Notes:
The family of this 46-nucleotide sequence from Candidatus Electrothrix marina is "Acido-Lenti-1 RNA". The source organism's lineage runs through Bacteria, Pseudomonadati, Thermodesulfobacteriota, Desulfobulbia and Candidatus Electrothrix. By type it is a small RNA.

[Rfam]
RNA sequence: CCCACCGUUAAAACGGCGGGCUCUUUUCGUUCGCCCCUCCGGGGCU
Numbered sequence: 001c002c003c004a005c006c007g008u009u010a011a012a013a014c015g016g017c018g019g020g021c022u023c024u025u026u027u028c029g030u031u032c033g034c035c036c037c038u039c040c041g042g043g044g045c046u
Stems, first nucleotide, its partner, number of pairs: 001020003005016004033045005